RNA: Mason-Pfizer monkey virus packaging signal
RNA sequence: UGGCGCCCAACGUGGGGCCUGGCACGGAGGAUUUAACGAGGGAGGCGUUCGAGAGCCCGGGUACGAAGCAGAUAGUGAAAGUGAAUUCCGAGGCCAACCCGCGCGAGUGCCUGCCGCGCCGCUCAGCCACGGUGAGUGACCGGCAGCCCCUUCCCCUUCCCGGCAUGGGUCAGGCAUUAAGCGAGCAUGAGCUCUUUGUGGAAAGCUUCAGUAAGGCACUCAAGACACGAGGGAUUAAGGUAAAGGAAAAGGAAUUAUUACAGUAUUUUAAGUUUAUUCAUGAGGUUGCCCGUG
Numbered sequence: 001u002g003g004c005g006c007c008c009a010a011c012g013u014g015g016g017g018c019c020u021g022g023c024a025c026g027g028a029g030g031a032u033u034u035a036a037c038g039a040g041g042g043a044g045g046c047g048u049u050c051g052a053g054a055g056c057c058c059g060g061g062u063a064c065g066a067a068g069c070a071g072a073u074a075g076u077g078a079a080a081g082u083g084a085a086u087u088c089c090g091a092g093g094c095c096a097a098c099c100c101g102c103g104c105g106a107g108u109g110c111c112u113g114c115c116g117c118g119c120c121g122c123u124c125a126g127c128c129a130c131g132g133u134g135a136g137u138g139a140c141c142g143g144c145a146g147c148c149c150c151u152u153c154c155c156c157u158u159c160c161c162g163g164c165a166u167g168g169g170u171c172a173g174g175c176a177u178u179a180a181g182c183g184a185g186c187a188u189g190a191g192c193u194c195u196u197u198g199u200g201g202a203a204a205g206c207u208u209c210a211g212u213a214a215g216g217c218a219c220u221c222a223a224g225a226c227a228c229g230a231g232g233g234a235u236u237a238a239g240g241u242a243a244a245g246g247a248a249a250a251g252g253a254a255u256u257a258u259u260a261c262a263g264u265a266u267u268u269u270a271a272g273u274u275u276a277u278u279c280a281u282g283a284g285g286u287u288g289c290c291c292g293u294g
Stems, first nucleotide, its partner, number of pairs: 006030002012025003035049004088132002092128002097123001099121001102118004137172004179220001181217002229269004234264002238256002241253001279294004284289001